[Rfam]
RNA sequence: GCUGCCCCGUGAUGGCUGGAUCUGAAAGCCUAGGUGGAUCCAGCUUGAUGUCUUAGCAGU
Numbered sequence: 001g002c003u004g005c006c007c008c009g010u011g012a013u014g015g016c017u018g019g020a021u022c023u024g025a026a027a028g029c030c031u032a033g034g035u036g037g038a039u040c041c042a043g044c045u046u047g048a049u050g051u052c053u054u055a056g057c058a059g060u
Stems, first nucleotide, its partner, number of pairs: 001060005014045010029034001
A member of the RNA family "Selenocysteine insertion sequence 1" from Balaenoptera musculus, 60 nucleotides long. Rfam links the family to the GO term selenocysteine incorporation. A search with the family's covariance model found it, with a score of 38 bits. Rfam's curators write: The incorporation of selenocysteine into a protein sequence is directed by an in-frame UGA codon (usually a stop codon) within the coding region of the mRNA. Selenoprotein mRNAs contain a conserved secondary structure in the 3' UTR that is required for the distinction of UGA stop from UGA selenocysteine. On this family, see Walczak et al., RNA 1996: "A novel RNA structural motif in the selenocysteine insertion element of eukaryotic selenoprotein mRNAs". Rfam classes the family as a cis-regulatory element.